[Rfam]
RNA: chrB-b RNA
RNA sequence: CCGGGGUCCGCAGAUUCCCGGGGCGUGCAAAAAGCCGAGACGGUGUCCCGUCCAAAUCUGC
Numbered sequence: 001c002c003g004g005g006g007u008c009c010g011c012a013g014a015u016u017c018c019c020g021g022g023g024c025g026u027g028c029a030a031a032a033a034g035c036c037g038a039g040a041c042g043g044u045g046u047c048c049c050g051u052c053c054a055a056a057u058c059u060g061c
Stems, first nucleotide, its partner, number of pairs: 001021006010061005039052005